[Rfam]
The family of this 110-nucleotide RNA from Phycicoccus avicenniae is "SAM (S-adenosyl methionine) riboswitch aptamer".
Rfam describes the family as follows. SAM-IV is a mRNA element that regulates gene expression via direct sensing of S-adenosylmethionine (SAM or AdoMet).
A search with the family's covariance model found it, with a score of 104 bits.
The organism belongs to Phycicoccus, within Bacteria.
RNA sequence: GGUCAUGAGUCCCAGCGCCAAACCCCGGUUUGCUGGGCGGCAACCCUCCUCGCGGUGGGGUGCCCCGGGUGAUGACCGGGCCGCGGCGUCCGUCGCGGCAAACGCGAGAU
Numbered sequence: 001g002g003u004c005a006u007g008a009g010u011c012c013c014a015g016c017g018c019c020a021a022a023c024c025c026c027g028g029u030u031u032g033c034u035g036g037g038c039g040g041c042a043a044c045c046c047u048c049c050u051c052g053c054g055g056u057g058g059g060g061u062g063c064c065c066c067g068g069g070u071g072a073u074g075a076c077c078g079g080g081c082c083g084c085g086g087c088g089u090c091c092g093u094c095g096c097g098g099c100a101a102a103c104g105c106g107a108g109a110u
Base pairs, nucleotide, nucleotide: 001077002076003075004074009038011037012036013035014034015033016032021030022029039064040063041062044060045059046058048055049054080099081098082097083096084095085094086093087092
Dot-bracket structure: ((((....(.((((((....((......)).)))))))(((..(((.((....))..))).))).........))))..((((((((....))))))))...........